[Rfam]
RNA sequence: CCGGCAAGCCAUCCUGUCGCUGCGGCCCAACCGGGGCCGGAGAGGAAAGUCCGGGCACCGCAGGGCAGUCUGCUUCCUAACGGGAAGGCGCUGUUCCGGCGACGGAACAGCGACCGCCAGUGCCACAGAAAAUAACCGCCGCGCCGGGUGCAAGCCGGGCGCGGUAAGGGUGAAAAGGUAGGGUAAGAGCCUACCAGCGAGCCGGCAACGGCUUCGGCUGGGUAAACCGCAGGCGGUGAAAGCCCAAAUAGGCCGAUACGCUUCCGCGAGGGAGCAGCGGGCGGCCCGUCCGUGUCGGUGGGUAGGGCGAUGGAGCCUUUCGGCGACGACUGGCCUAGAUAAAUGAUAGGACGGCGGGCUUCGGCCCGCCCGACAGAACCCGGCUUAUCGGCUUGUCGGCCCG
Numbered sequence: 001c002c003g004g005c006a007a008g009c010c011a012u013c014c015u016g017u018c019g020c021u022g023c024g025g026c027c028c029a030a031c032c033g034g035g036g037c038c039g040g041a042g043a044g045g046a047a048a049g050u051c052c053g054g055g056c057a058c059c060g061c062a063g064g065g066c067a068g069u070c071u072g073c074u075u076c077c078u079a080a081c082g083g084g085a086a087g088g089c090g091c092u093g094u095u096c097c098g099g100c101g102a103c104g105g106a107a108c109a110g111c112g113a114c115c116g117c118c119a120g121u122g123c124c125a126c127a128g129a130a131a132a133u134a135a136c137c138g139c140c141g142c143g144c145c146g147g148g149u150g151c152a153a154g155c156c157g158g159g160c161g162c163g164g165u166a167a168g169g170g171u172g173a174a175a176a177g178g179u180a181g182g183g184u185a186a187g188a189g190c191c192u193a194c195c196a197g198c199g200a201g202c203c204g205g206c207a208a209c210g211g212c213u214u215c216g217g218c219u220g221g222g223u224a225a226a227c228c229g230c231a232g233g234c235g236g237u238g239a240a241a242g243c244c245c246a247a248a249u250a251g252g253c254c255g256a257u258a259c260g261c262u263u264c265c266g267c268g269a270g271g272g273a274g275c276a277g278c279g280g281g282c283g284g285c286c287c288g289u290c291c292g293u294g295u296c297g298g299u300g301g302g303u304a305g306g307g308c309g310a311u312g313g314a315g316c317c318u319u320u321c322g323g324c325g326a327c328g329a330c331u332g333g334c335c336u337a338g339a340u341a342a343a344u345g346a347u348a349g350g351a352c353g354g355c356g357g358g359c360u361u362c363g364g365c366c367c368g369c370c371c372g373a374c375a376g377a378a379c380c381c382g383g384c385u386u387a388u389c390g391g392c393u394u395g396u397c398g399g400c401c402c403g
Stems, first nucleotide, its partner, number of pairs: 001399010011388001012351007020042002023039006047386003051383005056238004063287004068234005073087005088114001089112010115229002120227002122223003136169002138165008177195006197218001198216003201212004242308004252299006278292005315334003320329003

Rfam assigns this 403-nucleotide sequence from a Hymenobacteraceae bacterium to the family "Bacterial RNase P class A". By type it is a ribozyme. Taxonomically the source falls in Hymenobacteraceae (Bacteria, Pseudomonadati, Bacteroidota, Cytophagia).